Shown here is a 90-nucleotide sequence from Cannabis sativa, a member of the family "Small nucleolar RNA Z161/Z228".
Rfam 15.1 lists 630 matches to the family in 214 species.
It scores 58 bits against the family's covariance model.
NCBI's taxonomy places the organism under Eukaryota, Viridiplantae, eudicotyledons, fabids, Cannabis.

[Rfam]
RNA sequence: GAUUCAAAUGAUGAUUAUGGAUGUCAAAUUCUCACGACGGUCAUCUGAGAUUUGUUCAUUGAUGACAAAUAUCCUUUCAUUCUGAUGAUU
Numbered sequence: 001g002a003u004u005c006a007a008a009u010g011a012u013g014a015u016u017a018u019g020g021a022u023g024u025c026a027a028a029u030u031c032u033c034a035c036g037a038c039g040g041u042c043a044u045c046u047g048a049g050a051u052u053u054g055u056u057c058a059u060u061g062a063u064g065a066c067a068a069a070u071a072u073c074c075u076u077u078c079a080u081u082c083u084g085a086u087g088a089u090u
Base pairs, nucleotide, nucleotide: 001090002089003088004087049057050056